[Rfam]
RNA sequence: GGUGGGAAAUGAUGAUGAUUAUAUCAUUUAAUCAGAGGCUCAGUUAUUAACUGUUCACUGCUGAACAAAAAUUUGCACGUCAGUCUGAUCCCCUC
Numbered sequence: 001g002g003u004g005g006g007a008a009a010u011g012a013u014g015a016u017g018a019u020u021a022u023a024u025c026a027u028u029u030a031a032u033c034a035g036a037g038g039c040u041c042a043g044u045u046a047u048u049a050a051c052u053g054u055u056c057a058c059u060g061c062u063g064a065a066c067a068a069a070a071a072u073u074u075g076c077a078c079g080u081c082a083g084u085c086u087g088a089u090c091c092c093c094u095c
Stems, first nucleotide, its partner, number of pairs: 001095002004092004
Rfam assigns this 95-nucleotide RNA sequence from Daucus carota to the family "Small nucleolar RNA Z122". It scores 51 bits against the family's covariance model. Pairs were carried over by alignment from the consensus structure, which was predicted with PFOLD. For this family Rfam cites "The high diversity of snoRNAs in plants: identification and comparative study of 120 snoRNA genes from Oryza sativa" (Chen et al., Nucleic Acids Res, 2003). Rfam links the family to the GO terms RNA processing and nucleolus.